[Rfam]
Nucleotides: 087
Stems, first nucleotide, its partner, number of pairs: 007047006015039002017075004024035004064082005
Number, partner (000 for none) and nucleotide at each position: 001000u002000g003000a004000u005000c006000c007047c008046a009045u010044c011043g012042c013000g014000a015039c016038u017075g018074g019073c020072g021000c022000a023000g024035g025034u026033g027032g028000a029000u030000c031000a032027c033026c034025a035024c036000c037000g038016g039015g040000g041000a042012g043011c044010g045009a046008u047007g048000c049000a050000u051000a052000a053000g054000a055000c056000g057000a058000g059000c060000c061000u062000c063000a064082c065081g066080g067079u068078c069000g070000c071000c072020c073019g074018c075017c076000u077000g078068g079067g080066c081065c082064g083000c084000g085000a086000g087000g